This 204-nucleotide RNA from Granulicatella balaenopterae belongs to the Rfam family "T-box leader". A search with the family's covariance model found it, with a score of 94 bits. It is annotated as a cis-regulatory leader. Taxonomically the source falls in Granulicatella (Bacteria, Bacillati, Lactobacillales, Carnobacteriaceae). Rfam describes the family as follows. Uncharged tRNA acts as the effector for transcription antitermination of genes in the T-box leader family. T-boxes are found upstream of many aminoacyl-tRNA synthetase genes and some amino acid biosynthetic genes usually in Gram-positive bacteria.

[Rfam]
RNA sequence: UUAACGAUGGACAUUGGAAUAGUAAAAUUUUCUAUGGGUACAGAAAGUUCGACAAGCUGAGAACGAACCCCCGCUAGUGAUUUGAACCUACCAUGCUAUAGAUGGUUAUGAAAAUAAUCCGGUUUAUCACCGUUAUCAAUAGUAAGUGGCAUAUAGGGAUUUUUAUAUGCAAAUAAGGUGGUACCACGGUCAUUCGUCCUUUUU
Numbered sequence: 001u002u003a004a005c006g007a008u009g010g011a012c013a014u015u016g017g018a019a020u021a022g023u024a025a026a027a028u029u030u031u032c033u034a035u036g037g038g039u040a041c042a043g044a045a046a047g048u049u050c051g052a053c054a055a056g057c058u059g060a061g062a063a064c065g066a067a068c069c070c071c072c073g074c075u076a077g078u079g080a081u082u083u084g085a086a087c088c089u090a091c092c093a094u095g096c097u098a099u100a101g102a103u104g105g106u107u108a109u110g111a112a113a114a115u116a117a118u119c120c121g122g123u124u125u126a127u128c129a130c131c132g133u134u135a136u137c138a139a140u141a142g143u144a145a146g147u148g149g150c151a152u153a154u155a156g157g158g159a160u161u162u163u164u165a166u167a168u169g170c171a172a173a174u175a176a177g178g179u180g181g182u183a184c185c186a187c188g189g190u191c192a193u194u195c196g197u198c199c200u201u202u203u204u
Stems, first nucleotide, its partner, number of pairs: 007099002015093003025083005036071003047068005102118002105115003120132003149170007175201004186197004